[Rfam]
RNA sequence: UUGUCCUAAUUUUGUAAGUCGCUUUGGAUAAAAGCGUAUGCUAAAUAACUAAAU
Numbered sequence: 001u002u003g004u005c006c007u008a009a010u011u012u013u014g015u016a017a018g019u020c021g022c023u024u025u026g027g028a029u030a031a032a033a034g035c036g037u038a039u040g041c042u043a044a045a046u047a048a049c050u051a052a053a054u
Base pairs, nucleotide, nucleotide: 013043014041015040016039020036021035022034023033024032025031
Dot-bracket structure: ............((((...((((((.....))))))..))).)...........
The family of this 54-nucleotide RNA sequence from Labeo rohita is "UnaL2 LINE 3' element".
Taxonomically the source falls in Labeo (Eukaryota, Chordata, Vertebrata, Labeoninae).
It is annotated as a cis-regulatory element.
The match comes from Rfam's covariance-model search (60 bits).
On this family, see Baba et al., RNA 2004: "Solution structure of an RNA stem-loop derived from the 3' conserved region of eel LINE UnaL2".